Rfam assigns this 210-nucleotide sequence from Actinacidiphila reveromycinica to the family "Streptomyces RNA 1601". Rfam's curators write: Identified by deep sequencing of transcriptome at the end of exponential growth phase. Appears longer on northern blot than sequencing transcript. The source organism's lineage runs through Bacteria, Bacillati, Actinomycetota, Kitasatosporales and Actinacidiphila. The pairing is the family consensus, mapped onto this sequence.
RNA sequence: GACGACCGGUCGGACAUCAGCGUGUCCGGCCACCAAGUGGAGGCUCCGAACUCCCACCUGCUCGGCCUGUCGGCCGAGGGGUCCCCGGUCAGACGGCUUCGGUCGGCGUUUCCCGCGUCCGGCCUCCGCCGUCCGAUGCGCCCCGCGGAAUAACGCGGCGGUGCUCCCGGUUGUGAGGAGCCCGCCUGUGUGCCGUACGGGGCGUUUCUG
Dot-bracket structure: ...((((((..((............))((((..((.((((((........)).)))).))(((((((....))))))).)))).)))))).(((((.(.(((.(............).))))......)))))......(((((((((.....((((((((.(((((.........)))))))))).)))..)))..)))))).......